[Rfam]
RNA sequence: UAAAAACGAAUAUUCUUGCUCAGUAUAUAUGUAGGGAUAGGGCCUACACGUUUCUACCAGACAGCCGUAAACUGUCUGACUACUUGGGGAAGUUUACUUAGG
Numbered sequence: 001u002a003a004a005a006a007c008g009a010a011u012a013u014u015c016u017u018g019c020u021c022a023g024u025a026u027a028u029a030u031g032u033a034g035g036g037a038u039a040g041g042g043c044c045u046a047c048a049c050g051u052u053u054c055u056a057c058c059a060g061a062c063a064g065c066c067g068u069a070a071a072c073u074g075u076c077u078g079a080c081u082a083c084u085u086g087g088g089g090a091a092g093u094u095u096a097c098u099u100a101g102g
Stems, first nucleotide, its partner, number of pairs: 019087002022084004030048006058078007

About this RNA: The record is a 102-nucleotide sequence from Orenia metallireducens, which matches "Purine riboswitch aptamer" in Rfam. The match comes from Rfam's covariance-model search (78 bits). The family has 133 seed sequences and 4,097 matches in Rfam 15.1.